The family of this 129-nucleotide sequence from Leptobrachium leishanense is "Small nucleolar RNA SNORA63". Its family is annotated with RNA processing and nucleolus in the Gene Ontology. The family's consensus secondary structure was predicted with PFOLD. Lineage of the source: Eukaryota > Tetrapoda > Batrachia > Pelobatoidea > Leptobrachium. Rfam classes the family as an H/ACA-box small nucleolar RNA.
[Rfam]
RNA sequence: AUGCAGGCUAGUUUACAAUAUAGCUGUUAAGUGCUGUGUUGUCGUUCCCCCUGCAAAAAAUAACUUGUUUCCUACUAUCCCUGACAGUCAUUAUUACCCUGGCUGACAGGGACGCUUGGUUUCAGACAC
Numbered sequence: 001a002u003g004c005a006g007g008c009u010a011g012u013u014u015a016c017a018a019u020a021u022a023g024c025u026g027u028u029a030a031g032u033g034c035u036g037u038g039u040u041g042u043c044g045u046u047c048c049c050c051c052u053g054c055a056a057a058a059a060a061u062a063a064c065u066u067g068u069u070u071c072c073u074a075c076u077a078u079c080c081c082u083g084a085c086a087g088u089c090a091u092u093a094u095u096a097c098c099c100u101g102g103c104u105g106a107c108a109g110g111g112a113c114g115c116u117u118g119g120u121u122u123c124a125g126a127c128a129c
Base pairs, nucleotide, nucleotide: 003054004053005052006051007050015042016041017040018039019038020037021036022035023034024033080110081109082108083107085105086104087103088102